This 90-nucleotide RNA sequence belongs to the Rfam family "RT-9 RNA".
By type it is a small RNA.
[Rfam]
RNA sequence: GAUUGUUAAGAUUACGGUUUUAACAACACGACUUGAAGAAGUUCAAGCGAGCCCGGUUCUUUCAGCACUGCUGUAAACACAUAAACAAUG
Number, nucleotide and partner (000 for none) at each position: 001g000002a000003u026004u025005g024006u023007u022008a021009a020010g019011a018012u017013u000014a000015c000016g000017g012018u011019u010020u009021u008022a007023a006024c005025a004026a003027c000028a000029c000030g000031a000032c000033u000034u000035g000036a000037a000038g000039a000040a000041g000042u000043u000044c000045a000046a000047g000048c000049g000050a000051g000052c000053c000054c000055g000056g000057u000058u000059c000060u000061u000062u000063c073064a072065g071066c070067a000068c000069u000070g066071c065072u064073g063074u000075a000076a000077a000078c000079a000080c000081a000082u000083a000084a000085a000086c000087a000088a000089u000090g000